[Rfam]
Nucleotides: 145
Stems, first nucleotide, its partner, number of pairs: 008116003012044006019038005045086004050082001052079003056075005088113003091109003095105002121143004126139001128137003
Number, partner (000 for none) and nucleotide at each position: 001000a002000u003000a004000c005000c006000u007000u008116g009115c010114a011000g012044g013043g014042g015041a016040a017039a018000u019038a020037c021036c022035a023034u024000g025000g026000u027000u028000a029000u030000g031000a032000a033000a034023g035022u036021g037020g038019u039017u040016u041015u042014u043013c044012c045086a046085g047084g048083g049000u050082a051000a052079a053078g054077c055000u056075c057074a058073u059072c060071a061000a062000u063000u064000g065000c066000a067000c068000u069000u070000u071060u072059g073058g074057u075056g076000u077054g078053c079052u080000g081000a082050u083048c084047c085046u086045u087000a088113u089112g090111a091109u092108u093107u094000c095105c096104c097000c098000a099000a100000a101000u102000g103000u104096g105095g106000g107093a108092a109091a110000u111090u112089u113088g114010u115009g116008u117000u118000a119000a120000u121143g122142g123141a124140g125000g126139a127000u128137u129136g130135c131000a132000u133000u134000u135130g136129u137128a138000a139126u140124u141123u142122c143121c144000c145000u

Shown here is a 145-nucleotide RNA sequence from Pogona vitticeps, a member of the family "U1 spliceosomal RNA". The source organism's lineage runs through Eukaryota, Metazoa, Sauropsida, Agamidae and Pogona. The match comes from Rfam's covariance-model search (70 bits).